[Rfam]
RNA sequence: AAAACAAUUAUAGCGCCUGAGCUGAAGAAAUUGAACGAAGACAUCUUCAGCAGACGAGGUGGAGGUUUAUCGAAAAUUCGGCGGAUGCCUCCCGAUCGACAUACCCGAUUGUCAUUUUUCAUUUUGAAAGCAUUUGAGUGAUUGAAUGUACAGAAAAUGGAGAAGGUAUAAG
Numbered sequence: 001a002a003a004a005c006a007a008u009u010a011u012a013g014c015g016c017c018u019g020a021g022c023u024g025a026a027g028a029a030a031u032u033g034a035a036c037g038a039a040g041a042c043a044u045c046u047u048c049a050g051c052a053g054a055c056g057a058g059g060u061g062g063a064g065g066u067u068u069a070u071c072g073a074a075a076a077u078u079c080g081g082c083g084g085a086u087g088c089c090u091c092c093c094g095a096u097c098g099a100c101a102u103a104c105c106c107g108a109u110u111g112u113c114a115u116u117u118u119u120c121a122u123u124u125u126g127a128a129a130g131c132a133u134u135u136g137a138g139u140g141a142u143u144g145a146a147u148g149u150a151c152a153g154a155a156a157a158u159g160g161a162g163a164a165g166g167u168a169u170a171a172g
Base pairs, nucleotide, nucleotide: 021051022050023049024048025047026046027045061092062091063090064089065088070081071080072079073078093111094110095109096108097107098106117162118161119160120159121158122157123156131148132147133146134145135144136143137142
A member of the RNA family "glmS glucosamine-6-phosphate activated ribozyme aptamer" from Lysinibacillus sphaericus, 172 nucleotides long. It is annotated as a riboswitch. Taxonomically the source falls in Lysinibacillus (Bacteria, Bacillota, Bacilli, Caryophanales). The base pairs follow the family's consensus structure, which is taken from published work.